[Rfam]
RNA sequence: CUCUUAUCAAGAGUAGCUGAGGGACUGGCCCGAUGAAGCUCGGCAACCAUCUACAUAAUAAUCUAUGUAGAAAGGUGCUAAAUCCUGCAAAACAUUUUGUUUUGGAAGAUAAGAG
Numbered sequence: 001c002u003c004u005u006a007u008c009a010a011g012a013g014u015a016g017c018u019g020a021g022g023g024a025c026u027g028g029c030c031c032g033a034u035g036a037a038g039c040u041c042g043g044c045a046a047c048c049a050u051c052u053a054c055a056u057a058a059u060a061a062u063c064u065a066u067g068u069a070g071a072a073a074g075g076u077g078c079u080a081a082a083u084c085c086u087g088c089a090a091a092a093c094a095u096u097u098u099g100u101u102u103u104g105g106a107a108g109a110u111a112a113g114a115g
Stems, first nucleotide, its partner, number of pairs: 001115008013041001015040003021031003025087001027085002042079004047075002050071007083107001088104006
RNA: SAM riboswitch aptamer (S box leader)